RNA: bantam microRNA precursor family
RNA sequence: CAUUUCUAACAAAACUGGUUUUCAUAUUGGUCUGGCAGAUACCUGAAAACUCUGAGAUCAUUGUGAAAACUAAUUUUGUACC
Numbered sequence: 001c002a003u004u005u006c007u008a009a010c011a012a013a014a015c016u017g018g019u020u021u022u023c024a025u026a027u028u029g030g031u032c033u034g035g036c037a038g039a040u041a042c043c044u045g046a047a048a049a050c051u052c053u054g055a056g057a058u059c060a061u062u063g064u065g066a067a068a069a070c071u072a073a074u075u076u077u078g079u080a081c082c
Stems, first nucleotide, its partner, number of pairs: 009079006016072010028060006